[Rfam]
RNA sequence: AGCGGCAGAGGUGAACACAUAUCGCGUAUUCAACCCUCGCCUUUUACUAGAGUUGACCGUGGGUCCGCCUCGUUCAAUGCUGCUAUGGAAUUUUUCGGAAUAUCGUCCUUCUUGGAUACC
Numbered sequence: 001a002g003c004g005g006c007a008g009a010g011g012u013g014a015a016c017a018c019a020u021a022u023c024g025c026g027u028a029u030u031c032a033a034c035c036c037u038c039g040c041c042u043u044u045u046a047c048u049a050g051a052g053u054u055g056a057c058c059g060u061g062g063g064u065c066c067g068c069c070u071c072g073u074u075c076a077a078u079g080c081u082g083c084u085a086u087g088g089a090a091u092u093u094u095u096c097g098g099a100a101u102a103u104c105g106u107c108c109u110u111c112u113u114g115g116a117u118a119c120c
Base pairs, nucleotide, nucleotide: 003082004081005080006079009070010069011068012067013066015064016063018061019060030056031055032054033053034052036050037049098120101118102117103116104115

Notes:
U5 spliceosomal RNA: a 120-nucleotide RNA from Ceratobasidium theobromae. Lineage of the source: Eukaryota > Opisthokonta > Basidiomycota > Cantharellales > Ceratobasidium. From the family's description: U5 RNA is a component of both types of known spliceosome. Its family is annotated with spliceosomal tri-snRNP complex assembly and U5 snRNP in the Gene Ontology. Pairs were carried over by alignment from the consensus structure, which is taken from published work.